Description: Rfam assigns this 61-nucleotide sequence from Rosa chinensis to the family "Plastid-psbA-4 3UTR RNA". For this family Rfam cites "Retrograde signaling in plants: A critical review focusing on the GUN pathway and beyond" (Richter et al., Plant Commun, 2023). Lineage of the source: Eukaryota > Euphyllophyta > Gunneridae > rosids > Rosa. Plastid psbA-4 is a non-coding RNA (ncRNA) present in plastids. It was identified in inverted repeat sequences in the 3 prime untranslate region (3UTR) of photosystem II quinone-binding protein (psbA). A search with the family's covariance model found it, with a score of 69 bits. The base pairs follow the family's consensus structure, which was predicted with LocARNA. The family is grouped with related families in Rfam's "Plastid-psbA 3UTR RNA clan".

RNA sequence: AAAGCAAAGGAGCAAUACUAAAAUUCUUGUUAUAUCAAGAGGUUUGGUGUUGCUCCUUCAC
Numbered sequence: 001a002a003a004g005c006a007a008a009g010g011a012g013c014a015a016u017a018c019u020a021a022a023a024u025u026c027u028u029g030u031u032a033u034a035u036c037a038a039g040a041g042g043u044u045u046g047g048u049g050u051u052g053c054u055c056c057u058u059c060a061c
Stems, first nucleotide, its partner, number of pairs: 007058011021044002024041006